[Rfam]
RNA sequence: GAAAGGCCGCUGUCGUCGUCACGUGCGGCUGGAUGCUUCAUACCGGCAUCCCAAUUAAG
Numbered sequence: 001g002a003a004a005g006g007c008c009g010c011u012g013u014c015g016u017c018g019u020c021a022c023g024u025g026c027g028g029c030u031g032g033a034u035g036c037u038u039c040a041u042a043c044c045g046g047c048a049u050c051c052c053a054a055u056u057a058a059g
Stems, first nucleotide, its partner, number of pairs: 005030006031051007
Background
The record is a 59-nucleotide sequence, which matches "S4-Clostridia ribosomal protein leader" in Rfam. The family is grouped with related families in Rfam's "Ribosomal Protein S4 Leader clan". Pairs were carried over by alignment from the consensus structure, which is taken from published work.